[Rfam]
RNA: Lysine riboswitch aptamer
Organism: Sporomusa acidovorans
RNA sequence: UUUUCCGAUAGAGGCGCGGCAGAGCAAGAGUAAGUAUGGAGAGUUGGCAACGAUGAGCAUACUGAAAGGGGCUGACCGCCGAAGUGAAAGCUUUUGCCAGGAGCUUUUGCUGGUCUUGCAUUGAAUAAAUGUAAGACUGUCACCUGAAAGUUAGGUGGAGCGCUAUCUUGCAC
Numbered sequence: 001u002u003u004u005c006c007g008a009u010a011g012a013g014g015c016g017c018g019g020c021a022g023a024g025c026a027a028g029a030g031u032a033a034g035u036a037u038g039g040a041g042a043g044u045u046g047g048c049a050a051c052g053a054u055g056a057g058c059a060u061a062c063u064g065a066a067a068g069g070g071g072c073u074g075a076c077c078g079c080c081g082a083a084g085u086g087a088a089a090g091c092u093u094u095u096g097c098c099a100g101g102a103g104c105u106u107u108u109g110c111u112g113g114u115c116u117u118g119c120a121u122u123g124a125a126u127a128a129a130u131g132u133a134a135g136a137c138u139g140u141c142a143c144c145u146g147a148a149a150g151u152u153a154g155g156u157g158g159a160g161c162g163c164u165a166u167c168u169u170g171c172a173c
Stems, first nucleotide, its partner, number of pairs: 007167005016079004023073003033063006083111012112138011140158007